Notes:
The record is a 47-nucleotide sequence from Microbacterium dextranolyticum, which matches "ffh sRNA" in Rfam. NCBI's taxonomy places the organism under Bacteria, Actinomycetes, Micrococcales, Microbacteriaceae, Microbacterium. Rfam classes the family as a small RNA.
RNA sequence: GGGCGAUGAGGUCGACACCCAGCGCGGCGCGCUCGGGUGCGAUUCCG
Numbered sequence: 001g002g003g004c005g006a007u008g009a010g011g012u013c014g015a016c017a018c019c020c021a022g023c024g025c026g027g028c029g030c031g032c033u034c035g036g037g038u039g040c041g042a043u044u045c046c047g
Base pairs, nucleotide, nucleotide: 016039017038018037019036020035022032023031024030025029

A search with the family's covariance model found it, with a score of 35 bits. A reference for the family is Meyer et al. (2009), "Identification of candidate structured RNAs in the marine organism 'Candidatus Pelagibacter ubique'", BMC Genomics. The family's consensus secondary structure is taken from published work.